Small nucleolar RNA SNORA48: a 144-nucleotide RNA sequence from Castor canadensis. It scores 75 bits against the family's covariance model. The organism belongs to Castor, within Eukaryota. About the family: The snoRNA ACA 48 has been identified to guide pseudouridylation of the residue U3797 in the 28S rRNA subunit. On this family, see Ofengand and Bakin, J Mol Biol 1997: "Mapping to nucleotide resolution of pseudouridine residues in large subunit ribosomal RNAs from representative eukaryotes, prokaryotes, archaebacteria, mitochondria and chloroplasts". Pairs were carried over by alignment from the consensus structure, which was predicted with RNAalifold.
RNA sequence: ACCCCCUGGCGGUGGGCAAAGAGACACCUCAUUGGUAGUGGUGUUCUUACAUCACUCAGGGGCAGAGCAGAUGACAGUCCUUUGUUCAUCCUAGCUUGGUGCCUGGGUCAGUGGCCAAGGCUAUUUCAUGCCUAGGGCACAUUU
Numbered sequence: 001a002c003c004c005c006c007u008g009g010c011g012g013u014g015g016g017c018a019a020a021g022a023g024a025c026a027c028c029u030c031a032u033u034g035g036u037a038g039u040g041g042u043g044u045u046c047u048u049a050c051a052u053c054a055c056u057c058a059g060g061g062g063c064a065g066a067g068c069a070g071a072u073g074a075c076a077g078u079c080c081u082u083u084g085u086u087c088a089u090c091c092u093a094g095c096u097u098g099g100u101g102c103c104u105g106g107g108u109c110a111g112u113g114g115c116c117a118a119g120g121c122u123a124u125u126u127c128a129u130g131c132c133u134a135g136g137g138c139a140c141a142u143u144u
Base pairs, nucleotide, nucleotide: 003062004061005060006059007058008057012055013054014053015052019048020047021046023042025040026039027038083139084138085137086136087135098132099131100130104128105127106126111122